The record is a 102-nucleotide sequence from Candidatus Kurthia intestinigallinarum, which matches "Purine riboswitch aptamer" in Rfam.

RNA sequence: ACUGUAAUUAAAUAACGUCGUCGUAUAAAAUCGAGAAUAAGGCUCGAAAGUUUCUACCAAAUCACCGUAAAUGAUUUGACUACGAUUGAAGAAACAAUGUGU
Numbered sequence: 001a002c003u004g005u006a007a008u009u010a011a012a013u014a015a016c017g018u019c020g021u022c023g024u025a026u027a028a029a030a031u032c033g034a035g036a037a038u039a040a041g042g043c044u045c046g047a048a049a050g051u052u053u054c055u056a057c058c059a060a061a062u063c064a065c066c067g068u069a070a071a072u073g074a075u076u077u078g079a080c081u082a083c084g085a086u087u088g089a090a091g092a093a094a095c096a097a098u099g100u101g102u
Stems, first nucleotide, its partner, number of pairs: 018088001020086006031047005058078007
NCBI's taxonomy places the organism under Bacteria, Bacilli, Caryophanales, Caryophanaceae, Kurthia. From the family's description: Riboswitches are metabolite binding domains within certain messenger RNAs that serve as precision sensors for their corresponding targets.